Rfam assigns this 85-nucleotide RNA sequence from Psilopogon haemacephalus to the family "Small nucleolar RNA SNORD100". The family has 26 seed sequences and 838 matches in Rfam 15.1. A reference for the family is Huttenhofer et al. (2001), "RNomics: an experimental approach that identifies 201 candidates for novel, small, non-messenger RNAs in mouse", EMBO J. Its Rfam clan is "SNORD100 clan". Gene Ontology terms of the family: nucleolus and RNA processing. The family's consensus secondary structure was predicted with RNAalifold. NCBI's taxonomy places the organism under Eukaryota, Opisthokonta, Bilateria, Euteleostomi, Psilopogon.

RNA sequence: GUUGUACAAUGAUGAUACUUUGGCUCCCUCUUCUGAUACUUGUGAGGAAAGCAGCCAUCUGUUACCCAAAUCUUCUGAGUACAGC
Numbered sequence: 001g002u003u004g005u006a007c008a009a010u011g012a013u014g015a016u017a018c019u020u021u022g023g024c025u026c027c028c029u030c031u032u033c034u035g036a037u038a039c040u041u042g043u044g045a046g047g048a049a050a051g052c053a054g055c056c057a058u059c060u061g062u063u064a065c066c067c068a069a070a071u072c073u074u075c076u077g078a079g080u081a082c083a084g085c
Base pairs, nucleotide, nucleotide: 001085002084003083004082005081006080